Shown here is a 94-nucleotide sequence from Pan troglodytes, a member of the family "Y RNA". A search with the family's covariance model found it, with a score of 53 bits. The family's consensus secondary structure is taken from published work.
[Rfam]
RNA sequence: GGCUGGUCUGAAGGUAGUUAUUUAAUGGGUUGUUCAGAGCUACAGAUUGAACUCUACUUUUCCCCUUCUCACGACUACACUUGACUAGUUUUAU
Dot-bracket structure: ((((((((.((..((.((.(.....(((...((.................)).)))............).))....))..))))))))))....